A member of the RNA family "mir-181 microRNA precursor family" from Chiloscyllium punctatum, 81 nucleotides long. The base pairs follow the family's consensus structure, which was predicted with PFOLD.
RNA sequence: AGGCCACAAUCAACAUUCAUUGCUGUCGGUGGGUUGUGAAUUAUGGGAAACUCACUGACCAAUGAGUGGAACUGUGGUCAG
Numbered sequence: 001a002g003g004c005c006a007c008a009a010u011c012a013a014c015a016u017u018c019a020u021u022g023c024u025g026u027c028g029g030u031g032g033g034u035u036g037u038g039a040a041u042u043a044u045g046g047g048a049a050a051c052u053c054a055c056u057g058a059c060c061a062a063u064g065a066g067u068g069g070a071a072c073u074g075u076g077g078u079c080a081g
Base pairs, nucleotide, nucleotide: 003079004077005076006075007074008073014068015067016066017065018064019063020062021061022060025059026058027057028056029055030054031053033051034050035049
For this family Rfam cites "microRNAs: tiny regulators with great potential" (Ambros, Cell, 2001). Its family is annotated with RISC complex and miRNA-mediated post-transcriptional gene silencing in the Gene Ontology.